[Rfam]
The family of this 79-nucleotide RNA sequence from Mesocricetus auratus is "Small nucleolar RNA SNORD115". On this family, see Cavaille et al., Proc Natl Acad Sci U S A 2000: "Identification of brain-specific and imprinted small nucleolar RNA genes exhibiting an unusual genomic organization". It is annotated as a C/D-box small nucleolar RNA. It scores 68 bits against the family's covariance model.
RNA sequence: GGAUGUAUAAUGACAAAUCAAUGUCAUGAAGAGAGGUGAUGACAUACAAAUCAUGCUCAAUUGUAUUAUGUUCAGGCCC
Dot-bracket structure: ((.((..((...........................................................))..)..).))